[Rfam]
RNA sequence: ACCUUAUCAAGAGAAGCGGAGGGACUGGCCCAAUGAUGCUUCAGCAACCGGCCUGCGCGGCAAAGGUGCUAAAUCCAGCGGACCCACACCGUCCGGUAGAUGAGAA
Numbered sequence: 001a002c003c004u005u006a007u008c009a010a011g012a013g014a015a016g017c018g019g020a021g022g023g024a025c026u027g028g029c030c031c032a033a034u035g036a037u038g039c040u041u042c043a044g045c046a047a048c049c050g051g052c053c054u055g056c057g058c059g060g061c062a063a064a065g066g067u068g069c070u071a072a073a074u075c076c077a078g079c080g081g082a083c084c085c086a087c088a089c090c091g092u093c094c095g096g097u098a099g100a101u102g103a104g105a106a
Stems, first nucleotide, its partner, number of pairs: 003104006013042005021031003025078004043070004048066002051061003074098001079095005
Dot-bracket structure: ..((((((....(((((...(((.[[[[)))......)))))((((.((.(((.....)))...))))))...(]]]](((((.......)))))..)))))))..
RNA: SAM riboswitch aptamer (S box leader)